The family of this 86-nucleotide RNA from Muntiacus reevesi is "Small nucleolar RNA SNORD86". Rfam describes the family as follows. U86 belongs to the C/D family of snoRNAs. It is the human orthologue of Xenopus laevis U86 and has no identified RNA target.
RNA sequence: GACAUUCACGGUUGAUCAGGGCUCCGUCACUUAUAAACAGGCUUCUUGCUAUAGGGUUGAUGGCCAGUCCUAGUAUCUGAAUGAUU
Numbered sequence: 001g002a003c004a005u006u007c008a009c010g011g012u013u014g015a016u017c018a019g020g021g022c023u024c025c026g027u028c029a030c031u032u033a034u035a036a037a038c039a040g041g042c043u044u045c046u047u048g049c050u051a052u053a054g055g056g057u058u059g060a061u062g063g064c065c066a067g068u069c070c071u072a073g074u075a076u077c078u079g080a081a082u083g084a085u086u
Stems, first nucleotide, its partner, number of pairs: 001086002006081001010077003015074002018071006024063002027060001029058001031056002039052001040050003

Lineage of the source: Eukaryota > Boreoeutheria > Laurasiatheria > Artiodactyla > Muntiacus. Its family is annotated with nucleolus and RNA processing in the Gene Ontology. For this family Rfam cites "U86, a novel snoRNA with an unprecedented gene organization in yeast" (Filippini et al., Biochem Biophys Res Commun, 2001). Rfam classes the family as a C/D-box small nucleolar RNA.